[Rfam]
RNA sequence: GGUUGGGCAUUAUGCUUCAAGGAUCAGUUCUUCAAGGGGUGAGAAGAA
Number, nucleotide and partner (000 for none) at each position: 001g000002g000003u020004u019005g018006g016007g015008c014009a000010u000011u000012a000013u000014g008015c007016u006017u000018c005019a004020a003021g000022g000023a000024u000025c000026a000027g000028u048029u047030c046031u045032u044033c043034a000035a000036g000037g000038g000039g000040u000041g000042a000043g033044a032045a031046g030047a029048a028